The record is a 66-nucleotide RNA sequence from Naja naja, which matches "Small nucleolar RNA SNORD82" in Rfam. It scores 44 bits against the family's covariance model. The family has 27 seed sequences and 649 matches in Rfam 15.1. By type it is a C/D-box small nucleolar RNA. Rfam describes the family as follows. snoRNA U82 or Z25 is found in both humans and mice.

RNA sequence: AGCACAGAUGAUGAGUUUUGGGACUUAAUACUGAUUUGGUGAUGCCUCAAGUAAGAUCUGAUGUGU
Numbered sequence: 001a002g003c004a005c006a007g008a009u010g011a012u013g014a015g016u017u018u019u020g021g022g023a024c025u026u027a028a029u030a031c032u033g034a035u036u037u038g039g040u041g042a043u044g045c046c047u048c049a050a051g052u053a054a055g056a057u058c059u060g061a062u063g064u065g066u
Stems, first nucleotide, its partner, number of pairs: 002066005